[Rfam]
RNA sequence: UUCAUUUAAGGCACAAUGCGCCGCUUGCAAAAAAUGACAUUAACCGACGUUUCCAUACGCGUCGGUUAUUUUUUUGC
Numbered sequence: 001u002u003c004a005u006u007u008a009a010g011g012c013a014c015a016a017u018g019c020g021c022c023g024c025u026u027g028c029a030a031a032a033a034a035u036g037a038c039a040u041u042a043a044c045c046g047a048c049g050u051u052u053c054c055a056u057a058c059g060c061g062u063c064g065g066u067u068a069u070u071u072u073u074u075u076g077c
Stems, first nucleotide, its partner, number of pairs: 011021002041068009

Shown here is a 77-nucleotide RNA sequence from Citrobacter rodentium, a member of the family "Enterobacterial sRNA STnc240". The organism belongs to Citrobacter rodentium, within Bacteria. The family's consensus secondary structure was predicted with WAR.